[Rfam]
RNA sequence: GGGUGCUUGAGGCUUUCUGUCUUAAGCAUUGCUGACGGCAGAAAGAAGAAAGCCCCGAGAGAUUUAUUCAAUCAACCCGAGGCCUACCCUUAAUGCCAGACAACAUGAAAGGUAGCGUCUUACGUGCCGAAAGGCAAGGAGAAGCAACCAUG
Numbered sequence: 001g002g003g004u005g006c007u008u009g010a011g012g013c014u015u016u017c018u019g020u021c022u023u024a025a026g027c028a029u030u031g032c033u034g035a036c037g038g039c040a041g042a043a044a045g046a047a048g049a050a051a052g053c054c055c056c057g058a059g060a061g062a063u064u065u066a067u068u069c070a071a072u073c074a075a076c077c078c079g080a081g082g083c084c085u086a087c088c089c090u091u092a093a094u095g096c097c098a099g100a101c102a103a104c105a106u107g108a109a110a111g112g113u114a115g116c117g118u119c120u121u122a123c124g125u126g127c128c129g130a131a132a133g134g135c136a137a138g139g140a141g142a143a144g145c146a147a148c149c150a151u152g
Stems, first nucleotide, its partner, number of pairs: 001056003005053004013045009023035001026032002057078001059076001061073004079119002082116002087112002090109002093106003123144001125142001127141001

The family of this 152-nucleotide RNA from Pantoea vagans is "sok antitoxin (CssrC)". NCBI's taxonomy places the organism under Bacteria, Pseudomonadati, Pseudomonadota, Gammaproteobacteria, Pantoea. The family's RNA type in Rfam is antitoxin RNA. About the family: Also identified in Shigella as CssrC. Pairs were carried over by alignment from the consensus structure, which is taken from published work.